[Rfam]
RNA sequence: UGCCGAAGUUUUCUUCGGUAGUUAACUGCAGCUGGUUCCAUAAUUCGGCAGUUAACUACCGAGGGACAU
Number, nucleotide and partner (000 for none) at each position: 001u000002g000003c000004c000005g000006a000007a000008g000009u000010u000011u000012u065013c064014u000015u062016c061017g060018g059019u058020a057021g056022u055023u054024a053025a052026c051027u050028g049029c048030a000031g000032c000033u000034g000035g000036u000037u000038c000039c000040a000041u000042a000043a000044u000045u000046c000047g000048g029049c028050a027051g026052u025053u024054a023055a022056c021057u020058a019059c018060c017061g016062a015063g000064g013065g012066a000067c000068a000069u000
About this RNA
The record is a 69-nucleotide RNA sequence from Medicago truncatula, which matches "MIR2629 microRNA precursor family" in Rfam. The organism belongs to Medicago, within Eukaryota. It scores 77 bits against the family's covariance model.